[Rfam]
RNA sequence: CACACGCCUAGCCCGACGGGGCGAAAACCAGCAAACCUUCAACUGGCUGGCGUGUGUUUUCUUUUGGAGG
Number, nucleotide and partner (000 for none) at each position: 001c056002a055003c054004a053005c052006g051007c050008c049009u000010a000011g022012c021013c020014c019015g000016a000017c000018g000019g014020g013021g012022c011023g000024a000025a000026a000027a000028c046029c045030a044031g043032c000033a000034a000035a000036c070037c069038u068039u067040c066041a065042a000043c031044u030045g029046g028047c000048u000049g008050g007051c006052g005053u004054g003055u002056g001057u000058u000059u000060u000061c000062u000063u000064u000065u041066g040067g039068a038069g037070g036
RNA: int-alpA RNA